Description:
The record is an 87-nucleotide sequence from Branchiostoma belcheri, which matches "mir-2060 microRNA precursor family" in Rfam. The base pairs follow the family's consensus structure, which was predicted with RNAalifold. Its family is annotated with miRNA-mediated post-transcriptional gene silencing and RISC complex in the Gene Ontology. A search with the family's covariance model found it, with a score of 74 bits.

RNA sequence: GUGUGUGGAUGGUGUUUAGCACCAAAGACAGGCAUGUUUGCAUGUGUGUGGAUGGUGCUCUGCACCAAGGUACAGGCAUGUUUGCAU
Numbered sequence: 001g002u003g004u005g006u007g008g009a010u011g012g013u014g015u016u017u018a019g020c021a022c023c024a025a026a027g028a029c030a031g032g033c034a035u036g037u038u039u040g041c042a043u044g045u046g047u048g049u050g051g052a053u054g055g056u057g058c059u060c061u062g063c064a065c066c067a068a069g070g071u072a073c074a075g076g077c078a079u080g081u082u083u084g085c086a087u
Stems, first nucleotide, its partner, number of pairs: 001073002010067006018059007026047001028045003032041003